[Rfam]
RNA sequence: AACAUCAAUCGCAUAUUUCAUCUUUCAAUUAAAGGUAUGAUUUUAAUAAUAAUUUGUUUUUUAAAAUCAUAUCGAAAGAAUUCAAUGGAAUAAAAGCGUAGAUUAAAGAACGUUACUGGGCGCCCGAUGUUGAAUCCUAACUCUUGAGAUAUUGGGAAUCAGUUGUUUCGACAUUC
Numbered sequence: 001a002a003c004a005u006c007a008a009u010c011g012c013a014u015a016u017u018u019c020a021u022c023u024u025u026c027a028a029u030u031a032a033a034g035g036u037a038u039g040a041u042u043u044u045a046a047u048a049a050u051a052a053u054u055u056g057u058u059u060u061u062u063a064a065a066a067u068c069a070u071a072u073c074g075a076a077a078g079a080a081u082u083c084a085a086u087g088g089a090a091u092a093a094a095a096g097c098g099u100a101g102a103u104u105a106a107a108g109a110a111c112g113u114u115a116c117u118g119g120g121c122g123c124c125c126g127a128u129g130u131u132g133a134a135u136c137c138u139a140a141c142u143c144u145u146g147a148g149a150u151a152u153u154g155g156g157a158a159u160c161a162g163u164u165g166u167u168u169c170g171a172c173a174u175u176c
Base pairs, nucleotide, nucleotide: 010098011097012096015091016090017089018088019087020086021085029052030051031050036046053077054076055075059071061069108169109168110166111165112164123156124155127152128151129150130149131148135147136146139145
The record is a 176-nucleotide RNA sequence from Hansenula ciferrii, which matches "Small nucleolar RNA snR32" in Rfam. The match comes from Rfam's covariance-model search (74 bits). Rfam links the family to the GO terms RNA processing and nucleolus. Lineage of the source: Eukaryota > Dikarya > Saccharomycetes > Phaffomycetales > Hansenula. The literature on the family includes a 1993 paper in Nucleic Acids Res by Balakin et al., "SnR31, snR32, and snR33: three novel, non-essential snRNAs from Saccharomyces cerevisiae".